RNA sequence: UCAAUCCUGAUGUGUACGUCAAUUAAAGCAGUUUUGACCGAACAUUUAUAGAAAAGGGAGCUCGAUGGUGUUUCUGCAUUGCGUGCAGGCCUCGCAACUACAGAGGAAGCAUAAUAAAUGCAGAACAGAGCACCCACCUGCCUGGAGCGGGUUCAAAACCAUCUCAUUGACGGCACUAUUGGGAUUGAG
Numbered sequence: 001u002c003a004a005u006c007c008u009g010a011u012g013u014g015u016a017c018g019u020c021a022a023u024u025a026a027a028g029c030a031g032u033u034u035u036g037a038c039c040g041a042a043c044a045u046u047u048a049u050a051g052a053a054a055a056g057g058g059a060g061c062u063c064g065a066u067g068g069u070g071u072u073u074c075u076g077c078a079u080u081g082c083g084u085g086c087a088g089g090c091c092u093c094g095c096a097a098c099u100a101c102a103g104a105g106g107a108a109g110c111a112u113a114a115u116a117a118a119u120g121c122a123g124a125a126c127a128g129a130g131c132a133c134c135c136a137c138c139u140g141c142c143u144g145g146a147g148c149g150g151g152u153u154c155a156a157a158a159c160c161a162u163c164u165c166a167u168u169g170a171c172g173g174c175a176c177u178a179u180u181g182g183g184a185u186u187g188a189g
Stems, first nucleotide, its partner, number of pairs: 002187010012176004017172003031159007038151002056135003060131004073124007085110002090106004
This 189-nucleotide sequence from Lentibacillus sp. JNUCC-1 belongs to the Rfam family "6S / SsrS RNA". The organism belongs to Lentibacillus, within Bacteria. The family's RNA type in Rfam is non-coding RNA gene.